[Rfam]
Shown here is a 62-nucleotide RNA sequence, a member of the family "RAGATH-18 RNA".
RNA sequence: CCUCCGGAGCGUUACACCAAACGUUACUAGCUACGGCGAGGACGGACGCGGUGAACGAGGAA
Numbered sequence: 001c002c003u004c005c006g007g008a009g010c011g012u013u014a015c016a017c018c019a020a021a022c023g024u025u026a027c028u029a030g031c032u033a034c035g036g037c038g039a040g041g042a043c044g045g046a047c048g049c050g051g052u053g054a055a056c057g058a059g060g061a062a
Base pairs, nucleotide, nucleotide: 001060002059003058004057009049010048011047012046013045022044023043024042030037031036
Dot-bracket structure: ((((....(((((........(((.....((....))....)))))))).......))))..
Rfam's curators put it in the seed alignment. By type it is a small RNA. About the family: Actinobacteria, Firmicutes, Fusobacteria, Thermotogae (1 example).